Record summary
Archaeal small subunit ribosomal RNA: a 507-nucleotide part of an RNA from uncultured euryarchaeote. The family is grouped with related families in Rfam's "SSU clan". For this family Rfam cites "Crystal structure of the ribosome at 5.5 A resolution" (Yusupov et al., Science, 2001). The organism belongs to Methanobacteriota, within Archaea.
RNA sequence: AUUCCGGUUGAUUCUGCCGGAGGCUACUGCUCUGGGAGUCGGAUUAAGCCAUGCUAGCGGAGGGCAGUUCGGCUGCCCCGUGAAUAGCUCAGUAACACGUGGUCAACCUACCCUUGGGAUCGGGAUAACCCCGGGAAACUGGGGAUAAUCCCGAAUAAGUGGGGGUUCUGGAAAGGUCCCUCGCUGAAAUGCUCAGGCGCCCAAGGAUGUGACUGCGGCCUAUUAGGUAGUUGGCGAGGUAAUGGCUCACCAAGCCGAAGAUGGGUACGGGCCCUGAGAGGGGGAGCCCGGAGAUGGAGACUGAGACAAGGCUCCAGGCCCUACGGGGCGCAGCAGGUGCGAAAAUUCCGCAAUGCGUGCAAGCGCGACGGAGUGACUCCCAGUGCCGAUGGUCUAACGACCGUCGGCUUUUCGGAGCGUAAAAAGCUUCGGGUAAUAAGGGCCGGGUAAGACUGGUGCCAGCCGCCGCGGUAACACCAGCGGCUCGAGUGGUAGCCGAUUUUAUUG
Numbered sequence: 001a002u003u004c005c006g007g008u009u010g011a012u013u014c015u016g017c018c019g020g021a022g023g024c025u026a027c028u029g030c031u032c033u034g035g036g037a038g039u040c041g042g043a044u045u046a047a048g049c050c051a052u053g054c055u056a057g058c059g060g061a062g063g064g065c066a067g068u069u070c071g072g073c074u075g076c077c078c079c080g081u082g083a084a085u086a087g088c089u090c091a092g093u094a095a096c097a098c099g100u101g102g103u104c105a106a107c108c109u110a111c112c113c114u115u116g117g118g119a120u121c122g123g124g125a126u127a128a129c130c131c132c133g134g135g136a137a138a139c140u141g142g143g144g145a146u147a148a149u150c151c152c153g154a155a156u157a158a159g160u161g162g163g164g165g166u167u168c169u170g171g172a173a174a175g176g177u178c179c180c181u182c183g184c185u186g187a188a189a190u191g192c193u194c195a196g197g198c199g200c201c202c203a204a205g206g207a208u209g210u211g212a213c214u215g216c217g218g219c220c221u222a223u224u225a226g227g228u229a230g231u232u233g234g235c236g237a238g239g240u241a242a243u244g245g246c247u248c249a250c251c252a253a254g255c256c257g258a259a260g261a262u263g264g265g266u267a268c269g270g271g272c273c274c275u276g277a278g279a280g281g282g283g284g285a286g287c288c289c290g291g292a293g294a295u296g297g298a299g300a301c302u303g304a305g306a307c308a309a310g311g312c313u314c315c316a317g318g319c320c321c322u323a324c325g326g327g328g329c330g331c332a333g334c335a336g337g338u339g340c341g342a343a344a345a346u347u348c349c350g351c352a353a354u355g356c357g358u359g360c361a362a363g364c365g366c367g368a369c370g371g372a373g374u375g376a377c378u379c380c381c382a383g384u385g386c387c388g389a390u391g392g393u394c395u396a397a398c399g400a401c402c403g404u405c406g407g408c409u410u411u412u413c414g415g416a417g418c419g420u421a422a423a424a425a426g427c428u429u430c431g432g433g434u435a436a437u438a439a440g441g442g443c444c445g446g447g448u449a450a451g452a453c454u455g456g457u458g459c460c461a462g463c464c465g466c467c468g469c470g471g472u473a474a475c476a477c478c479a480g481c482g483g484c485u486c487g488a489g490u491g492g493u494a495g496c497c498g499a500u501u502u503u504a505u506u507g
Base pairs, nucleotide, nucleotide: 004020005019006018007017008016022497023496024495025494026493027492028491029490030489031488033382034381035380036379037378038377039376040375041374042340048338049337050336052335053334054333057081058080059079062078063077064076065075066074067073068072088293089292090291098217099216100215101214102213103212104211108209112206113205114204115203116202117201118200120154121153122152123151129144130143131142132141133140134139159184160183161182162181163180164179165178167176168175191198192197219265220264221263226256227255228254231253232252233251234250236248237247238246268290269289270288271287272283273282274281275280295316296315297314298313299312318329319328320327321326346372348371349370350369354367355366356365357364358363385408386407387406388405389404390403391402392401393400394399412432413431414430415429416428417427418426440486441485442484443483444482445481453480454479455478456477462469463468